[Rfam]
Rfam assigns this 164-nucleotide RNA sequence from Heyndrickxia shackletonii to the family "Manganese Mn2+ riboswitch aptamer (yybP-ykoY)". Rfam's curators write: This RNA was originally discovered in E. coli during a large scale screen and was named SraF. The family was later found to exist upstream of related families of protein genes in many bacteria, including the the yybP and ykoK genes in B. subtilis. It scores 50 bits against the family's covariance model. NCBI's taxonomy places the organism under Bacteria, Bacillota, Caryophanales, Bacillaceae, Heyndrickxia.
RNA sequence: GACAAUGUCAAAGGGGAGUAGCUUUGGGUGUGAAAACAUCUAAACAAAGUCGUCAUUACAUGAAGAAAUUCAUCGGCUUUGUUGGCAUGAUACAUAUGUCUAGCAAGACCUUUGCCUAUAAAGGGCAGAGGUCUUUUUUUGCGUCCUUUAUAGGGUUUGUUGUU
Numbered sequence: 001g002a003c004a005a006u007g008u009c010a011a012a013g014g015g016g017a018g019u020a021g022c023u024u025u026g027g028g029u030g031u032g033a034a035a036a037c038a039u040c041u042a043a044a045c046a047a048a049g050u051c052g053u054c055a056u057u058a059c060a061u062g063a064a065g066a067a068a069u070u071c072a073u074c075g076g077c078u079u080u081g082u083u084g085g086c087a088u089g090a091u092a093c094a095u096a097u098g099u100c101u102a103g104c105a106a107g108a109c110c111u112u113u114g115c116c117u118a119u120a121a122a123g124g125g126c127a128g129a130g131g132u133c134u135u136u137u138u139u140u141g142c143g144u145c146c147u148u149u150a151u152a153g154g155g156u157u158u159g160u161u162g163u164u
Stems, first nucleotide, its partner, number of pairs: 026041003043083010060073005